[Rfam]
RNA sequence: AAAUAGAGUAGAAGCGGUCAGUGCAGAUAACUGCGCGGGACAUUGCUCAGCAA
Dot-bracket structure: .....(((((....[..((.((((((....)))))).]))...))))).....
Numbered sequence: 001a002a003a004u005a006g007a008g009u010a011g012a013a014g015c016g017g018u019c020a021g022u023g024c025a026g027a028u029a030a031c032u033g034c035g036c037g038g039g040a041c042a043u044u045g046c047u048c049a050g051c052a053a
Stems, first nucleotide, its partner, number of pairs: 006048005015038001018040002021036006
Xanthine riboswitch aptamer (NMT1 RNA): a 53-nucleotide RNA sequence. Rfam links the family to the GO term purine nucleobase binding.